A member of the RNA family "skipping-rope RNA", 85 nucleotides long. By type it is a small RNA. Rfam's curators put it in the seed alignment.

RNA sequence: GCUAUUUGAAGUGGACAAUUGUGCCAUCCACACACCUAGAAAUAGGUCAAAAGAGAUGCAGGAAGUGGUACACCUGCCAGAUAAC
Numbered sequence: 001g002c003u004a005u006u007u008g009a010a011g012u013g014g015a016c017a018a019u020u021g022u023g024c025c026a027u028c029c030a031c032a033c034a035c036c037u038a039g040a041a042a043u044a045g046g047u048c049a050a051a052a053g054a055g056a057u058g059c060a061g062g063a064a065g066u067g068g069u070a071c072a073c074c075u076g077c078c079a080g081a082u083a084a085c
Stems, first nucleotide, its partner, number of pairs: 001085001003083006011031005021071005033053001034047004058077005